Shown here is a 55-nucleotide RNA sequence from Phoebe bournei, a member of the family "Plastid-psbA-4 3UTR RNA".
Rfam classes the family as a cis-regulatory element.
The source organism's lineage runs through Eukaryota, Viridiplantae, Magnoliopsida, Magnoliidae and Phoebe.
The literature on the family includes a 2023 paper in Plant Commun by Richter et al., "Retrograde signaling in plants: A critical review focusing on the GUN pathway and beyond".
The base pairs follow the family's consensus structure, which was predicted with LocARNA.
Clan: Plastid-psbA 3UTR RNA clan.
[Rfam]
RNA sequence: AAAUGGAUCAAUACCAAACUUCUUGUUCUAUUAAGAGGUUUGGUAUUGAUCCUUC
Numbered sequence: 001a002a003a004u005g006g007a008u009c010a011a012u013a014c015c016a017a018a019c020u021u022c023u024u025g026u027u028c029u030a031u032u033a034a035g036a037g038g039u040u041u042g043g044u045a046u047u048g049a050u051c052c053u054u055c
Stems, first nucleotide, its partner, number of pairs: 003054001005052009017040002020037006